The record is a 59-nucleotide RNA sequence from Pseudoclavibacter sp. RFBA6, which matches "msiK RNA" in Rfam. The family's RNA type in Rfam is cis-regulatory element. The match comes from Rfam's covariance-model search (58 bits).

[Rfam]
RNA sequence: GCUCCUCACCUAUUACUACGGAUCGUCCGGCACGUACCUGCCGGUAAUGAGGGAGUACU
Numbered sequence: 001g002c003u004c005c006u007c008a009c010c011u012a013u014u015a016c017u018a019c020g021g022a023u024c025g026u027c028c029g030g031c032a033c034g035u036a037c038c039u040g041c042c043g044g045u046a047a048u049g050a051g052g053g054a055g056u057a058c059u
Stems, first nucleotide, its partner, number of pairs: 009051001011049005027044006

Pairs were carried over by alignment from the consensus structure, which is taken from published work.